[Rfam]
RNA sequence: UUAAAAAAGGAGCAAUAACCUCUUUCUUGUUCUAUCAAGAGGCGGUCUUGCUCCUUUUU
Numbered sequence: 001u002u003a004a005a006a007a008a009g010g011a012g013c014a015a016u017a018a019c020c021u022c023u024u025u026c027u028u029g030u031u032c033u034a035u036c037a038a039g040a041g042g043c044g045g046u047c048u049u050g051c052u053c054c055u056u057u058u059u
Stems, first nucleotide, its partner, number of pairs: 006057010017046001024041006
RNA: Plastid-psbA-4 3UTR RNA